[Rfam]
RNA sequence: CCUGUAACAAUAUCCUGGUGCUGUCUGAGUGUAUCUGGGAAAACUCCAGCAUCAGUGAUUUUGUUGCUGG
Numbered sequence: 001c002c003u004g005u006a007a008c009a010a011u012a013u014c015c016u017g018g019u020g021c022u023g024u025c026u027g028a029g030u031g032u033a034u035c036u037g038g039g040a041a042a043a044c045u046c047c048a049g050c051a052u053c054a055g056u057g058a059u060u061u062u063g064u065u066g067c068u069g070g
Base pairs, nucleotide, nucleotide: 006065007064008063009062010061012059013058014057015055016054017053018052019051020050021049022048023047
This 70-nucleotide sequence from Scleropages formosus belongs to the Rfam family "mir-338 microRNA precursor family". The family's consensus secondary structure was predicted with RNAalifold. NCBI's taxonomy places the organism under Eukaryota, Eumetazoa, Teleostei, Osteoglossidae, Scleropages. On this family, see Chen et al., Genes Dev 2005: "The developmental miRNA profiles of zebrafish as determined by small RNA cloning".